[Rfam]
RNA: Group II catalytic intron D1-D4-1
RNA sequence: CAAUCAUGCCAGUGGUGGUGUGAUGAAUGGUAAGAAGUCAGCAGAAGUCAUAGUAAUCCGAAAGGGUGAAGGGC
Numbered sequence: 001c002a003a004u005c006a007u008g009c010c011a012g013u014g015g016u017g018g019u020g021u022g023a024u025g026a027a028u029g030g031u032a033a034g035a036a037g038u039c040a041g042c043a044g045a046a047g048u049c050a051u052a053g054u055a056a057u058c059c060g061a062a063a064g065g066g067u068g069a070a071g072g073g074c
Stems, first nucleotide, its partner, number of pairs: 001025002004023008038045002047074003056067004